Shown here is a 374-nucleotide RNA sequence from Branchiibius sp. NY16-3462-2, a member of the family "Bacterial RNase P class A". The family's consensus secondary structure is taken from published work. It scores 312 bits against the family's covariance model.

[Rfam]
RNA sequence: UGAGCUGGCCAGGCGGCCGCGUCGAGACACGUUCUCGCCGAGGAACGUCCGGGCUCCACAGAGCACGGUGGUGGCUAACGGCCACCCGGGGUGACCCGCGGGACAGUGCCACAGAAAACAGACCGCCUGCUGCGUGCGGCAGGUAAGGGUGAAACGGUGGUGUAAGAGACCACCAGCGGUGCAGGUGACUGCGCCGGCUCGGUAAACCCCACCGGGAGCAAGGUCAGACAGCGUGCGCUUGAGGGCUGCUCGCCCGAGCACGCGGGUAGACCGCUAGAGGUGGCUGGCAACAGUCACCCGAGAUGGAUGGUCGCCCGCCGUCGUCAGUUCGCUGGCGGUGGCGACAGAACCCGGCGUACCGGCCAGCUCAUCCU
Numbered sequence: 001u002g003a004g005c006u007g008g009c010c011a012g013g014c015g016g017c018c019g020c021g022u023c024g025a026g027a028c029a030c031g032u033u034c035u036c037g038c039c040g041a042g043g044a045a046c047g048u049c050c051g052g053g054c055u056c057c058a059c060a061g062a063g064c065a066c067g068g069u070g071g072u073g074g075c076u077a078a079c080g081g082c083c084a085c086c087c088g089g090g091g092u093g094a095c096c097c098g099c100g101g102g103a104c105a106g107u108g109c110c111a112c113a114g115a116a117a118a119c120a121g122a123c124c125g126c127c128u129g130c131u132g133c134g135u136g137c138g139g140c141a142g143g144u145a146a147g148g149g150u151g152a153a154a155c156g157g158u159g160g161u162g163u164a165a166g167a168g169a170c171c172a173c174c175a176g177c178g179g180u181g182c183a184g185g186u187g188a189c190u191g192c193g194c195c196g197g198c199u200c201g202g203u204a205a206a207c208c209c210c211a212c213c214g215g216g217a218g219c220a221a222g223g224u225c226a227g228a229c230a231g232c233g234u235g236c237g238c239u240u241g242a243g244g245g246c247u248g249c250u251c252g253c254c255c256g257a258g259c260a261c262g263c264g265g266g267u268a269g270a271c272c273g274c275u276a277g278a279g280g281u282g283g284c285u286g287g288c289a290a291c292a293g294u295c296a297c298c299c300g301a302g303a304u305g306g307a308u309g310g311u312c313g314c315c316c317g318c319c320g321u322c323g324u325c326a327g328u329u330c331g332c333u334g335g336c337g338g339u340g341g342c343g344a345c346a347g348a349a350c351c352c353g354g355c356g357u358a359c360c361g362g363c364c365a366g367c368u369c370a371u372c373c374u
Stems, first nucleotide, its partner, number of pairs: 001370010012315007020040002023037005045357003049354005054218004061251004066214005071085005086100001087098004101209002106207002108203003123148002125144008156174006176198001177196008222272004231263006243255004279298008